[Rfam]
RNA: Eukaryotic small subunit ribosomal RNA, nucleotides 1142 to 1633
Organism: Neurospora crassa
RNA sequence: UAAUGGAAGGGUAUUACUAGGGGUGGAGUUUGCGGUUUAAUUUGAUUUAAUAUAGGGAAAUUUAUUAAGUUUAAAUAUAAUAAGGAUUAAUAAAUUAAGAAUUCUUUUUUAAUUUUAUAGGUAAUAGUAUAUAGCUAUUCUUAAUUAGUAGAAUAAUUUAUUUAUUUAAUUAUAAUAACGAACGAGAUUUUAAUUUAUUAAAUAAUCUAUAUUACUUUAGUAGUACAUUAGCUUUUUAGAAGGACUAUUAGUUUAAGCCAAUAGAAGUUUAAGGUAAUAAUAGGUUUAUAAUACCUUUAAAUAUUCUAGGCUGUAUAUAUACUAUAUUAAUAUAGUUAGUAAGUAUUCCUUUGGCCGGAAGGUCCGGGUAAUUUUGUUAAAUUGUAUUGUAUUAGGGAUAGAGUAUUAUAAUUAUUACUCUUUAAUAAGGAAUCCCUAGUAAAUGUAAAUUAUUAAUUUAUAUUAAUUACGUCCCUGCCCUUUAUAUAUACU
Numbered sequence: 001u002a003a004u005g006g007a008a009g010g011g012u013a014u015u016a017c018u019a020g021g022g023g024u025g026g027a028g029u030u031u032g033c034g035g036u037u038u039a040a041u042u043u044g045a046u047u048u049a050a051u052a053u054a055g056g057g058a059a060a061u062u063u064a065u066u067a068a069g070u071u072u073a074a075a076u077a078u079a080a081u082a083a084g085g086a087u088u089a090a091u092a093a094a095u096u097a098a099g100a101a102u103u104c105u106u107u108u109u110u111a112a113u114u115u116u117a118u119a120g121g122u123a124a125u126a127g128u129a130u131a132u133a134g135c136u137a138u139u140c141u142u143a144a145u146u147a148g149u150a151g152a153a154u155a156a157u158u159u160a161u162u163u164a165u166u167u168a169a170u171u172a173u174a175a176u177a178a179c180g181a182a183c184g185a186g187a188u189u190u191u192a193a194u195u196u197a198u199u200a201a202a203u204a205a206u207c208u209a210u211a212u213u214a215c216u217u218u219a220g221u222a223g224u225a226c227a228u229u230a231g232c233u234u235u236u237u238a239g240a241a242g243g244a245c246u247a248u249u250a251g252u253u254u255a256a257g258c259c260a261a262u263a264g265a266a267g268u269u270u271a272a273g274g275u276a277a278u279a280a281u282a283g284g285u286u287u288a289u290a291a292u293a294c295c296u297u298u299a300a301a302u303a304u305u306c307u308a309g310g311c312u313g314u315a316u317a318u319a320u321a322c323u324a325u326a327u328u329a330a331u332a333u334a335g336u337u338a339g340u341a342a343g344u345a346u347u348c349c350u351u352u353g354g355c356c357g358g359a360a361g362g363u364c365c366g367g368g369u370a371a372u373u374u375u376g377u378u379a380a381a382u383u384g385u386a387u388u389g390u391a392u393u394a395g396g397g398a399u400a401g402a403g404u405a406u407u408a409u410a411a412u413u414a415u416u417a418c419u420c421u422u423u424a425a426u427a428a429g430g431a432a433u434c435c436c437u438a439g440u441a442a443a444u445g446u447a448a449a450u451u452a453u454u455a456a457u458u459u460a461u462a463u464u465a466a467u468u469a470c471g472u473c474c475c476u477g478c479c480c481u482u483u484a485u486a487u488a489u490a491c492u
Base pairs, nucleotide, nucleotide: 001488002487003485004484005483007482008481009480010479011478012477013476016472017471020436021435022434023433024432025325027323028322029321031319032318034316035314036313041056042055043054044053065309066308067307069305071303076119077118078117079116080115089108090107092105094103123297124296127294128293129292132291133289134285135284136283137281138280139279145182146181148179149178150159151158152157162175163174164173165172189273190272191271192270194242195241196240198239199238200237201236204233206231245264246263247262248261249260251258252257329388330387331386332385333384334383335382341375342374343373349368350367353364354363355362356361395426400421401420402419403418404417405416442464443463444462445461446460447459448458449457